[Rfam]
RNA sequence: ACCAAAUGAUGUAAAUUGAAACAUAGUAUAAUUCAUUGAUGACACUUAUUCAUCACCCAUUGAACUGAUGGUC
Numbered sequence: 001a002c003c004a005a006a007u008g009a010u011g012u013a014a015a016u017u018g019a020a021a022c023a024u025a026g027u028a029u030a031a032u033u034c035a036u037u038g039a040u041g042a043c044a045c046u047u048a049u050u051c052a053u054c055a056c057c058c059a060u061u062g063a064a065c066u067g068a069u070g071g072u073c
Stems, first nucleotide, its partner, number of pairs: 001072004026034001028032001